[Rfam]
RNA sequence: GACAAACAGAAGGAGGGUCACUCGACUACACCAAGAAUAUUUAGGUUGCACUACGCGACUUGGACUUUGGACUAGGUGAGCUCGAAGAAGGCAGCAGGCCCAUUAUGGAAAUGACUGGAGGCAAAGUCCGGAAAUCGGUCCAUUUUCGGACACCACUGAUGCGACUCGGUGUCGAUUCUGGCAUGGAGCUGGGACCCAUCUCGUGUUGGAGUCAAAGUUUAGUGCUUGUCCAGUUCCUUGACCAAAGUCGCCUGCUUUGAGUUGGAUCCGCGGACAGUCUUCAUCUGGCUCGGCUCAUUGACAUGUGCUCUAUACAACUAUUGGCUUAUAAGGACACACCGUGGAUGUGGGAGGCAGUCCUGGUUGCCCUCUUCCCAGAAAUGGCUGGAGGGCAACCCCCCGCUAAUGAGG
Number, nucleotide and partner (000 for none) at each position: 001g000002a000003c000004a000005a000006a000007c000008a000009g000010a000011a000012g000013g000014a000015g000016g000017g000018u000019c000020a000021c000022u000023c000024g000025a000026c000027u000028a000029c000030a000031c000032c000033a000034a000035g000036a000037a000038u000039a000040u000041u000042u000043a000044g000045g000046u000047u000048g000049c000050a000051c000052u000053a000054c000055g000056c000057g000058a000059c000060u000061u000062g000063g000064a000065c000066u000067u000068u000069g000070g000071a000072c000073u000074a000075g000076g000077u000078g000079a000080g000081c000082u000083c000084g000085a000086a000087g000088a000089a000090g000091g000092c000093a000094g000095c000096a000097g000098g000099c000100c000101c000102a000103u000104u000105a000106u000107g000108g000109a000110a000111a000112u000113g000114a000115c000116u000117g000118g000119a000120g000121g000122c000123a000124a000125a000126g000127u000128c000129c000130g000131g000132a000133a000134a000135u000136c000137g000138g000139u000140c000141c000142a000143u000144u000145u000146u000147c000148g000149g000150a000151c000152a000153c000154c000155a000156c000157u000158g000159a000160u000161g000162c000163g000164a000165c000166u000167c000168g000169g000170u000171g000172u000173c000174g000175a000176u000177u000178c000179u000180g000181g000182c000183a000184u000185g000186g000187a000188g000189c000190u000191g000192g000193g213194a212195c211196c209197c208198a207199u000200c000201u000202c000203g000204u000205g000206u000207u198208g197209g196210a000211g195212u194213c193214a000215a227216a226217g225218u224219u000220u000221a000222g000223u000224g218225c217226u216227u215228g000229u000230c000231c000232a000233g000234u000235u000236c000237c000238u000239u000240g000241a000242c000243c000244a000245a000246a000247g000248u000249c000250g000251c000252c000253u000254g000255c000256u000257u000258u000259g000260a000261g000262u000263u000264g000265g000266a000267u000268c000269c000270g000271c000272g000273g000274a000275c000276a000277g000278u000279c000280u000281u000282c000283a000284u000285c000286u000287g000288g000289c000290u000291c000292g000293g000294c000295u000296c000297a000298u000299u000300g000301a000302c000303a000304u000305g000306u000307g000308c000309u000310c000311u000312a000313u000314a000315c000316a000317a000318c000319u000320a000321u000322u000323g000324g000325c000326u000327u000328a000329u000330a000331a000332g000333g000334a000335c000336a000337c000338a000339c000340c000341g000342u000343g000344g000345a000346u000347g000348u000349g000350g000351g000352a000353g000354g000355c000356a000357g000358u000359c000360c000361u000362g000363g000364u000365u000366g000367c000368c000369c000370u000371c000372u000373u000374c000375c000376c000377a000378g000379a000380a000381a000382u000383g000384g000385c000386u000387g000388g000389a000390g000391g000392g000393c000394a000395a000396c000397c000398c000399c000400c000401c000402g000403c000404u000405a000406a000407u000408g000409a000410g000411g000

The record is a 411-nucleotide part of an RNA from Trichoderma asperellum, which matches "Ascomycota telomerase RNA" in Rfam. The pairing is the family consensus, mapped onto this sequence. Rfam links the family to the GO terms telomerase activity, telomerase catalytic core complex and telomere maintenance via telomerase. Clan: Telomerase clan.